[Rfam]
RNA sequence: GUGAAUUUUAAUAGUGUACCGUAGACAGUAGGUGCCGUUAAGGCUUAAUUUCCUACCGAGGUGUGAAUAUAUGAACGGAAUAUUUCUGUGACUAUAUGCCUCCAUGUCUACACUUGGGCAUGGAGGUUUUUUAGUGCACUU
Numbered sequence: 001g002u003g004a005a006u007u008u009u010a011a012u013a014g015u016g017u018a019c020c021g022u023a024g025a026c027a028g029u030a031g032g033u034g035c036c037g038u039u040a041a042g043g044c045u046u047a048a049u050u051u052c053c054u055a056c057c058g059a060g061g062u063g064u065g066a067a068u069a070u071a072u073g074a075a076c077g078g079a080a081u082a083u084u085u086c087u088g089u090g091a092c093u094a095u096a097u098g099c100c101u102c103c104a105u106g107u108c109u110a111c112a113c114u115u116g117g118g119c120a121u122g123g124a125g126g127u128u129u130u131u132u133a134g135u136g137c138a139c140u141u
Stems, first nucleotide, its partner, number of pairs: 028056005034044003099126010
RNA: Ribosomal protein L10 leader
Organism: Bacillus manliponensis